Record summary:
Shown here is a 123-nucleotide sequence from Halanaerobium hydrogeniformans, a member of the family "Molybdenum/Tungsten riboswitch aptamer (Moco RNA motif)". On this family, see Regulski et al., Mol Microbiol 2008: "in molybdenum cofactor and tungsten cofactor metabolism". Its family is annotated with molybdenum ion binding, tungstate binding and regulation of gene expression in the Gene Ontology.

[Rfam]
RNA sequence: AUAAUCAAAAAACUCCGAGUAUAUUUACCUGAGUAAUUUAGUUAUUAUGGGAAAUAUGCCGAUAGGGUCAAUUUGGAAACGGAUUGGCCUCCCGGAAUGGAAAGGAGUAUUAUUUUUAAUGAU
Dot-bracket structure: ..((.......(((((..((((((((.((...((((.....))))...)).)))))))).....(((((((((((....)))))))))))((......))...))))).......))......